[Rfam]
RNA sequence: CAGGCGUUUGCUGAAAAGCCUUAAAGAGAGUAGGCA
Numbered sequence: 001c002a003g004g005c006g007u008u009u010g011c012u013g014a015a016a017a018g019c020c021u022u023a024a025a026g027a028g029a030g031u032a033g034g035c036a
Stems, first nucleotide, its partner, number of pairs: 002021004010035003
RNA: DUF805b RNA